[Rfam]
RNA sequence: CCGCCUCCUGCUUCCACAGUGUUUGGACGGAACAG
Numbered sequence: 001c002c003g004c005c006u007c008c009u010g011c012u013u014c015c016a017c018a019g020u021g022u023u024u025g026g027a028c029g030g031a032a033c034a035g
Stems, first nucleotide, its partner, number of pairs: 001035001003033001006031003010028001012027003016023001017021001
Dot-bracket structure: (.(..(((.(.(((.((...).).))))))).).)
Iron response element I: a 35-nucleotide RNA sequence from Myotis lucifugus.
By type it is a cis-regulatory element.
Gene Ontology term of the family: response to iron ion.